[Rfam]
RNA: MIR4371 microRNA precursor family
RNA sequence: CCAUUAAGUGAUGAUGUAACAGACAGAGUGUCAUGUCUUCACGCAUUGUCACUGACACAUUAUUGGCGCUGAUGAUGUGGCAAUGAGGUGUCUAUAAUAAGGUGUGAUGAUGUGACACUUUGUCUGUCAUGUCAUCACUUAACAGAA
Numbered sequence: 001c002c003a004u005u006a007a008g009u010g011a012u013g014a015u016g017u018a019a020c021a022g023a024c025a026g027a028g029u030g031u032c033a034u035g036u037c038u039u040c041a042c043g044c045a046u047u048g049u050c051a052c053u054g055a056c057a058c059a060u061u062a063u064u065g066g067c068g069c070u071g072a073u074g075a076u077g078u079g080g081c082a083a084u085g086a087g088g089u090g091u092c093u094a095u096a097a098u099a100a101g102g103u104g105u106g107a108u109g110a111u112g113u114g115a116c117a118c119u120u121u122g123u124c125u126g127u128c129a130u131g132u133c134a135u136c137a138c139u140u141a142a143c144a145g146a147a
Base pairs, nucleotide, nucleotide: 001145004142005141006140007139008138009137010136011135012134013133014132015131016130017129019127020126021125022124023123024122025121026120027119028118029117030116031115032114033113034112035111036110037109039107040106041105042104043103044102046100048098049097051095054092055091056090057089058088059076060075061074062073063072